[Rfam]
RNA sequence: CUACUUCUUGCUUCAACAGUGUUUGGACAGAACAG
Numbered sequence: 001c002u003a004c005u006u007c008u009u010g011c012u013u014c015a016a017c018a019g020u021g022u023u024u025g026g027a028c029a030g031a032a033c034a035g
Base pairs, nucleotide, nucleotide: 001035002034005032006031007030008029010028012027013026014025015024016023017021
The record is a 35-nucleotide RNA from Myotis lucifugus, which matches "Iron response element I" in Rfam. Rfam 15.1 lists 6,829 matches to the family in 599 species. The source organism's lineage runs through Eukaryota, Metazoa, Craniata, Boreoeutheria and Myotis. It is annotated as a cis-regulatory element.